RNA: S4-Bacteroidia ribosomal protein leader
RNA sequence: AAUCACACAUAAAUUCCUUUCUGUGAUUGCGGCUG
Numbered sequence: 001a002a003u004c005a006c007a008c009a010u011a012a013a014u015u016c017c018u019u020u021c022u023g024u025g026a027u028u029g030c031g032g033c034u035g
Base pairs, nucleotide, nucleotide: 001028002027003026004025005024006023007022